RNA sequence: AACGACCGGCUGGAUACGCACGUGUCCGGCCCGCAAGUGGAGGCUCCGAACUCCCACCUGACCGGCAUCCCGCCGGCAGGUCAUUGGUCAGGCUGCGCCCCGCGGUGAUCGCGGCGGUGCUCCGGUCUGUCAAGGAGCCCCGCCUGUGUGCCGUCCGGGGCGUUUUUC
Numbered sequence: 001a002a003c004g005a006c007c008g009g010c011u012g013g014a015u016a017c018g019c020a021c022g023u024g025u026c027c028g029g030c031c032c033g034c035a036a037g038u039g040g041a042g043g044c045u046c047c048g049a050a051c052u053c054c055c056a057c058c059u060g061a062c063c064g065g066c067a068u069c070c071c072g073c074c075g076g077c078a079g080g081u082c083a084u085u086g087g088u089c090a091g092g093c094u095g096c097g098c099c100c101c102g103c104g105g106u107g108a109u110c111g112c113g114g115c116g117g118u119g120c121u122c123c124g125g126u127c128u129g130u131c132a133a134g135g136a137g138c139c140c141c142g143c144c145u146g147u148g149u150g151c152c153g154u155c156c157g158g159g160g161c162g163u164u165u166u167u168c
Stems, first nucleotide, its partner, number of pairs: 004089006012027002028082004034060002037057004041052002062076005097161006103153003110148003113144005119138005

Overview
Rfam assigns this 168-nucleotide sequence from Streptomyces harbinensis to the family "Streptomyces RNA 1601". The organism belongs to Streptomyces, within Bacteria. From the family's description: Identified by deep sequencing of transcriptome at the end of exponential growth phase. Appears longer on northern blot than sequencing transcript. Streptomyces specific. It scores 141 bits against the family's covariance model. A reference for the family is Vockenhuber et al. (2011), "Deep sequencing-based identification of small non-coding RNAs in Streptomyces coelicolor", RNA Biol. By type it is a small RNA.